Rfam assigns this 234-nucleotide RNA sequence to the family "Group II catalytic intron D1-D4-6". From the family's description: Group II introns are found in rRNA, tRNA and mRNA of organelles in fungi, plants and protists, and also in mRNA in bacteria. For this family Rfam cites "The ins and outs of group II introns" (Bonen and Vogel, Trends Genet, 2001). The pairing is the family consensus, mapped onto this sequence.

[Rfam]
RNA sequence: AAAAGCCUAUCAGGUAAGGUCUAACCAACCGCCUGUACCGAGUCCUUGGAACUGAAGUGGUAACACCAGGUUUAAGCGUAGGACAGGGAGCAACAGAGCCGAAACGAAAGUGAAGCGAUUGAGCUGGGAAAUUAGUAUGAGGUUGGAAAUGGUCGAUGUGUUGUAUUACACAGUAGACAACACUGCUGUAACCGCUACGGUGAGGUUAUGGCGGCAUCCCCCAGUCUGAGAGCU
Numbered sequence: 001a002a003a004a005g006c007c008u009a010u011c012a013g014g015u016a017a018g019g020u021c022u023a024a025c026c027a028a029c030c031g032c033c034u035g036u037a038c039c040g041a042g043u044c045c046u047u048g049g050a051a052c053u054g055a056a057g058u059g060g061u062a063a064c065a066c067c068a069g070g071u072u073u074a075a076g077c078g079u080a081g082g083a084c085a086g087g088g089a090g091c092a093a094c095a096g097a098g099c100c101g102a103a104a105c106g107a108a109a110g111u112g113a114a115g116c117g118a119u120u121g122a123g124c125u126g127g128g129a130a131a132u133u134a135g136u137a138u139g140a141g142g143u144u145g146g147a148a149a150u151g152g153u154c155g156a157u158g159u160g161u162u163g164u165a166u167u168a169c170a171c172a173g174u175a176g177a178c179a180a181c182a183c184u185g186c187u188g189u190a191a192c193c194g195c196u197a198c199g200g201u202g203a204g205g206u207u208a209u210g211g212c213g214g215c216a217u218c219c220c221c222c223a224g225u226c227u228g229a230g231a232g233c234u
Stems, first nucleotide, its partner, number of pairs: 011035004018030003022203001024201002038087002042084004047078001049073003052069003057066003120228001121226001123225006146219001148217001150216002152178003157172004183214011